[Rfam]
This 148-nucleotide RNA sequence belongs to the Rfam family "RT-3 RNA".

RNA sequence: AAUCGGUUCCACGACAAAGAAGGACGUGUCCUCACAGUCGCACCGAGGGGAAUGAACCACGGCAAAAGCACUUUAAGUGGAAAGCCGAAACAGCAAGUGUCGGGUAGAGUUUGGUAGGCCACACCAAGGCUCGAAGAACUCAGGCCCG
Numbered sequence: 001a002a003u004c005g006g007u008u009c010c011a012c013g014a015c016a017a018a019g020a021a022g023g024a025c026g027u028g029u030c031c032u033c034a035c036a037g038u039c040g041c042a043c044c045g046a047g048g049g050g051a052a053u054g055a056a057c058c059a060c061g062g063c064a065a066a067a068g069c070a071c072u073u074u075a076a077g078u079g080g081a082a083a084g085c086c087g088a089a090a091c092a093g094c095a096a097g098u099g100u101c102g103g104g105u106a107g108a109g110u111u112u113g114g115u116a117g118g119c120c121a122c123a124c125c126a127a128g129g130c131u132c133g134a135a136g137a138a139c140u141c142a143g144g145c146c147c148g
Stems, first nucleotide, its partner, number of pairs: 003046005012040004019033001021032004048058002060087004069079004101148005107141006117131004
Rfam's curators put it in the seed alignment. Pairs were carried over by alignment from the consensus structure, which is taken from published work.